RNA sequence: CGAGUUGGCGGCUAGGGUUCCGGCGUCGUUUUGACGUGCUGGUCCGAGAGCUGCCACUGGCGGGGAGACAUCCCGUCAGGUGCACGGCGGGAUAAAAGCCCGGGAGAC
Numbered sequence: 001c002g003a004g005u006u007g008g009c010g011g012c013u014a015g016g017g018u019u020c021c022g023g024c025g026u027c028g029u030u031u032u033g034a035c036g037u038g039c040u041g042g043u044c045c046g047a048g049a050g051c052u053g054c055c056a057c058u059g060g061c062g063g064g065g066a067g068a069c070a071u072c073c074c075g076u077c078a079g080g081u082g083c084a085c086g087g088c089g090g091g092a093u094a095a096a097a098g099c100c101c102g103g104g105a106g107a108c
Stems, first nucleotide, its partner, number of pairs: 007055006015045002020042002022039001023037006056081001057079007083103001085106001089101003
Guanidine-I riboswitch aptamer: a 108-nucleotide RNA sequence from Neorhizobium alkalisoli. Lineage of the source: Bacteria > Alphaproteobacteria > Hyphomicrobiales > Rhizobiaceae > Neorhizobium. The pairing is the family consensus, mapped onto this sequence.